L4-Archaeoglobi ribosomal protein leades: an 80-nucleotide RNA.
[Rfam]
RNA sequence: CUGAUCAGCGCAGGGGUGGACGUGCUCUGCACGAGCCCGCGUGUAUCAGCAUCAUACUGGUACAUCCGCGCGAUAGUCAG
Numbered sequence: 001c002u003g004a005u006c007a008g009c010g011c012a013g014g015g016g017u018g019g020a021c022g023u024g025c026u027c028u029g030c031a032c033g034a035g036c037c038c039g040c041g042u043g044u045a046u047c048a049g050c051a052u053c054a055u056a057c058u059g060g061u062a063c064a065u066c067c068g069c070g071c072g073a074u075a076g077u078c079a080g
Stems, first nucleotide, its partner, number of pairs: 001080005008071004014038003021033005041065009051055001

For this family Rfam cites "Discovery of 20 novel ribosomal leader candidates in bacteria and archaea" (Eckert and Weinberg, BMC Microbiol, 2020).